[Rfam]
Description:
This 106-nucleotide sequence from Polaribacter sp. KT25b belongs to the Rfam family "SAM riboswitch aptamer (S box leader)". Gene Ontology term of the family: regulation of gene expression. Lineage of the source: Bacteria > Bacteroidota > Flavobacteriia > Flavobacteriaceae > Polaribacter. From the family's description: The SAM riboswitch is found upstream of a number of genes which code for proteins involved in methionine or cysteine biosynthesis in Gram-positive bacteria.
RNA sequence: UUGUUAUCAAGAAAGGUUGAGGGAUUAGACCCAAGGAAGCCUUGGCAACCCUUUAUCUUUAAAGAAGGUGCUAAUUUCUACUGCGAGAUAAACAGAGAGAUAACGG
Numbered sequence: 001u002u003g004u005u006a007u008c009a010a011g012a013a014a015g016g017u018u019g020a021g022g023g024a025u026u027a028g029a030c031c032c033a034a035g036g037a038a039g040c041c042u043u044g045g046c047a048a049c050c051c052u053u054u055a056u057c058u059u060u061a062a063a064g065a066a067g068g069u070g071c072u073a074a075u076u077u078c079u080a081c082u083g084c085g086a087g088a089u090a091a092a093c094a095g096a097g098a099g100a101u102a103a104c105g106g
Base pairs, nucleotide, nucleotide: 001106002105003104004103005102006101007100008099013043014042015041016040017039021032022031023030026080027079028078029077044072045071046070047069049068050067051064052063053062054061076098081095082094083093
Dot-bracket structure: ((((((((....(((((...(((..[[[[)))......)))))((((.((((((......))))..))))))...(]]]](((.........)))..)))))))))